[Rfam]
RNA sequence: CUUAUUUGAUAAGCGCCAGAACUUAGAUAUCGUCUCUUUUUAAUUAAAUACAUUAGUUCUAAGUUGACGAGGACAGAGUUAAUCGAAUUAUCGGCGGAUGCUCUGCGGUGUGUUUACCAUCGAAGAACUUCUUUAAAACAUAGGAGUGAUCCUUUGCACAAAGAGAAGCUCAAGUAAACUU
Numbered sequence: 001c002u003u004a005u006u007u008g009a010u011a012a013g014c015g016c017c018a019g020a021a022c023u024u025a026g027a028u029a030u031c032g033u034c035u036c037u038u039u040u041u042a043a044u045u046a047a048a049u050a051c052a053u054u055a056g057u058u059c060u061a062a063g064u065u066g067a068c069g070a071g072g073a074c075a076g077a078g079u080u081a082a083u084c085g086a087a088u089u090a091u092c093g094g095c096g097g098a099u100g101c102u103c104u105g106c107g108g109u110g111u112g113u114u115u116a117c118c119a120u121c122g123a124a125g126a127a128c129u130u131c132u133u134u135a136a137a138a139c140a141u142a143g144g145a146g147u148g149a150u151c152c153u154u155u156g157c158a159c160a161a162a163g164a165g166a167a168g169c170u171c172a173a174g175u176a177a178a179c180u181u
Stems, first nucleotide, its partner, number of pairs: 020065008074105005083094004106122005125171002128168004139156002142153004
Dot-bracket structure: ...................((((((((..............................))))))))........(((((....((((....))))......)))))(((((.......)))))..((.((((.......((.((((....)))).))........)))).))..........

Overview: Shown here is a 181-nucleotide RNA sequence from Romboutsia sp. CE17, a member of the family "glmS glucosamine-6-phosphate activated ribozyme aptamer". By type it is a riboswitch. Rfam's curators write: This entry contains a glucosamine-6-phosphate activated ribozyme that is found in the mRNA for GlmS. GlmS is an enzyme that uses fructose-6-phosphate and glutamine to generate glucosamine-6-phosphate. The ribozyme catalyses self cleavage of the glmS mRNA that is thought to regulate GlmS activity. Lineage of the source: Bacteria > Bacillati > Peptostreptococcales > Peptostreptococcaceae > Romboutsia.